[Rfam]
About this RNA:
This 71-nucleotide sequence from Pseudonaja textilis belongs to the Rfam family "Small nucleolar RNA SNORD30". Rfam links the family to the GO terms RNA processing and nucleolus.

RNA sequence: UGAUAUGAUGAGCUGACACUUGGAAUCUCGUUCGGCUGAAUCACGCUGUUGAGAAUCGGAAUCUGAGCCUC
Numbered sequence: 001u002g003a004u005a006u007g008a009u010g011a012g013c014u015g016a017c018a019c020u021u022g023g024a025a026u027c028u029c030g031u032u033c034g035g036c037u038g039a040a041u042c043a044c045g046c047u048g049u050u051g052a053g054a055a056u057c058g059g060a061a062u063c064u065g066a067g068c069c070u071c
Base pairs, nucleotide, nucleotide: 026054027053028052029051030050033048034047035046036045
The match comes from Rfam's covariance-model search (55 bits). The family has 20 seed sequences and 367 matches in Rfam 15.1. Clan: SNORD30 clan. For this family Rfam cites "A mammalian gene with introns instead of exons generating stable RNA products" (Tycowski et al., Nature, 1996).